The record is a 106-nucleotide RNA sequence from Phanerochaete sordida, which matches "Small nucleolar RNA Z13/snr52" in Rfam. Rfam 15.1 lists 1,203 matches to the family in 866 species.
RNA sequence: ACCUACGUCUGAUGAAGCCAAUACGGAUGUAAAUGAGCUUUGCUCGCUGUCCGAGAGCGCAUAACACCAUGUGGAUCGUUCCGUUGCCUUCCUUCUGAACAUUUGU
Numbered sequence: 001a002c003c004u005a006c007g008u009c010u011g012a013u014g015a016a017g018c019c020a021a022u023a024c025g026g027a028u029g030u031a032a033a034u035g036a037g038c039u040u041u042g043c044u045c046g047c048u049g050u051c052c053g054a055g056a057g058c059g060c061a062u063a064a065c066a067c068c069a070u071g072u073g074g075a076u077c078g079u080u081c082c083g084u085u086g087c088c089u090u091c092c093u094u095c096u097g098a099a100c101a102u103u104u105g106u
Stems, first nucleotide, its partner, number of pairs: 003105001024083004